Nucleotides: 073
Base pairs, nucleotide, nucleotide: 002072003071004070006068007067008065009064010063011062012061013060014059015058016057017056018055019054020053022050023049024048025047026046027045028044
Number, partner (000 for none) and nucleotide at each position: 001000g002072c003071c004070c005000u006068u007067g008065u009064c010063a011062u012061u013060u014059u015058u016057g017056u018055g019054a020053u021000u022050u023049g024048c025047a026046g027045c028044u029000u030000g031000u032000a033000a034000u035000u036000u037000u038000g039000g040000u041000c042000u043000c044028a045027g046026u047025u048024g049023c050022a051000u052000a053020g054019u055018c056017a057016c058015a059014a060013a061012a062011g063010u064009g065008a066000u067007c068006a069000u070004g071003g072002g073000c
Rfam assigns this 73-nucleotide sequence from Xenopus tropicalis to the family "mir-153 microRNA precursor family". Its family is annotated with RISC complex and miRNA-mediated post-transcriptional gene silencing in the Gene Ontology. The base pairs follow the family's consensus structure, which was predicted with RNAalifold. The literature on the family includes a 2005 paper in Genes Dev by Chen et al., "The developmental miRNA profiles of zebrafish as determined by small RNA cloning". The organism belongs to Silurana, within Eukaryota.